A member of the RNA family "Connexin-43 internal ribosome entry site (IRES)" from Aegotheles bennettii, 192 nucleotides long. The family has 14 seed sequences and 657 matches in Rfam 15.1. It scores 114 bits against the family's covariance model. Rfam's curators write: This family represents the connexin-43 internal ribosome entry site (IRES) which allows cap independent translation during conditions such as heat shock and stress. The base pairs follow the family's consensus structure, which is taken from published work.
RNA sequence: AACUUUUACGAGGUAUCAGCACUUUUCUUUCAUUAGUGGGGAAGGCAGGAUGAAAAAUACAACACAGCAGUAGACUUUUAAAGUUUAAAUAGGCAGGUCUGAGUGCCUGAACGUGCUCUUCCAUUUUACUUUACCCUCCAAAGAAGUGUUCUGAUCGAGUUUCCCUGCUGAUCGGCAAGGGUAAGUUAAAAG
Numbered sequence: 001a002a003c004u005u006u007u008a009c010g011a012g013g014u015a016u017c018a019g020c021a022c023u024u025u026u027c028u029u030u031c032a033u034u035a036g037u038g039g040g041g042a043a044g045g046c047a048g049g050a051u052g053a054a055a056a057a058u059a060c061a062a063c064a065c066a067g068c069a070g071u072a073g074a075c076u077u078u079u080a081a082a083g084u085u086u087a088a089a090u091a092g093g094c095a096g097g098u099c100u101g102a103g104u105g106c107c108u109g110a111a112c113g114u115g116c117u118c119u120u121c122c123a124u125u126u127u128a129c130u131u132u133a134c135c136c137u138c139c140a141a142a143g144a145a146g147u148g149u150u151c152u153g154a155u156c157g158a159g160u161u162u163c164c165c166u167g168c169u170g171a172u173c174g175g176c177a178a179g180g181g182u183a184a185g186u187u188a189a190a191a192g
Base pairs, nucleotide, nucleotide: 003019004018007015008014009013029145030144031143033141034140036138038137039136040135041132042131043130044129049125050124051123052122056120057119072100073099074098075097076096077095101116103114104113105112159187160185163181164180165179166177167176168175169174